[Rfam]
RNA sequence: GAACAAUGAUGAAAAGGUUUUACUACUGACCUUUAUAACUAUGAAGGUUUCUACUGAGCUCA
Numbered sequence: 001g002a003a004c005a006a007u008g009a010u011g012a013a014a015a016g017g018u019u020u021u022a023c024u025a026c027u028g029a030c031c032u033u034u035a036u037a038a039c040u041a042u043g044a045a046g047g048u049u050u051c052u053a054c055u056g057a058g059c060u061c062a
Stems, first nucleotide, its partner, number of pairs: 001061002004058001013034007

Notes: Rfam assigns this 62-nucleotide RNA from Neogale vison to the family "Small nucleolar RNA U2-30". NCBI's taxonomy places the organism under Eukaryota, Opisthokonta, Deuterostomia, Boreoeutheria, Neogale. A reference for the family is Tycowski et al. (2004), "Guide RNAs with 5' Caps and Novel Box C/D snoRNA-like Domains for Modification of snRNAs in Metazoa", Curr Biol. Its family is annotated with nucleolus and RNA processing in the Gene Ontology. Rfam 15.1 lists 664 matches to the family in 136 species. A search with the family's covariance model found it, with a score of 74 bits. Rfam classes the family as a C/D-box small nucleolar RNA. Pairs were carried over by alignment from the consensus structure, which is taken from published work.